The family of this 102-nucleotide sequence from Prunus yedoensis is "MIR6274 microRNA precursor family".
The family's consensus secondary structure was predicted with RNAalifold.
[Rfam]
RNA sequence: GGACACUUUUUGCUAUUUUCGACCAAUAGUGCAAUGACAUGUAAGAUAACUUUUUCACGUAUCAUUGUGUUAUUGGUCGGAAAUAGCAAAACAGUAUUGUCC
Numbered sequence: 001g002g003a004c005a006c007u008u009u010u011u012g013c014u015a016u017u018u019u020c021g022a023c024c025a026a027u028a029g030u031g032c033a034a035u036g037a038c039a040u041g042u043a044a045g046a047u048a049a050c051u052u053u054u055u056c057a058c059g060u061a062u063c064a065u066u067g068u069g070u071u072a073u074u075g076g077u078c079g080g081a082a083a084u085a086g087c088a089a090a091a092c093a094g095u096a097u098u099g100u101c102c
Stems, first nucleotide, its partner, number of pairs: 002101004008091009018081020039060004044055003